[Rfam]
RNA sequence: ACCGCUAAGCCAUCUCUCCAGCCCAAACAAAAUAUUUUUAAAAGUUAUAAAUGUAAGUAAACAGUCUCAGGGCUGGAGAGAUGGCUUAGUGGU
Numbered sequence: 001a002c003c004g005c006u007a008a009g010c011c012a013u014c015u016c017u018c019c020a021g022c023c024c025a026a027a028c029a030a031a032a033u034a035u036u037u038u039u040a041a042a043a044g045u046u047a048u049a050a051a052u053g054u055a056a057g058u059a060a061a062c063a064g065u066c067u068c069a070g071g072g073c074u075g076g077a078g079a080g081a082u083g084g085c086u087u088a089g090u091g092g093u
Stems, first nucleotide, its partner, number of pairs: 002092023
The family of this 93-nucleotide RNA sequence from Jaculus jaculus is "mir-3473 microRNA precursor family". Taxonomically the source falls in Jaculus (Eukaryota, Metazoa, Tetrapoda, Euarchontoglires). The match comes from Rfam's covariance-model search (74 bits).